[Rfam]
RNA: Small nucleolar RNA U54
Organism: Vanilla planifolia
RNA sequence: AGCUCGAUGAUUGUAGCCAAACUACUUGGCAAUAUACGCUAUUCUGACCUUAAAGUGCUGACUUUAAAUAGAAUGAGAGCU
Numbered sequence: 001a002g003c004u005c006g007a008u009g010a011u012u013g014u015a016g017c018c019a020a021a022c023u024a025c026u027u028g029g030c031a032a033u034a035u036a037c038g039c040u041a042u043u044c045u046g047a048c049c050u051u052a053a054a055g056u057g058c059u060g061a062c063u064u065u066a067a068a069u070a071g072a073a074u075g076a077g078a079g080c081u
Stems, first nucleotide, its partner, number of pairs: 001081005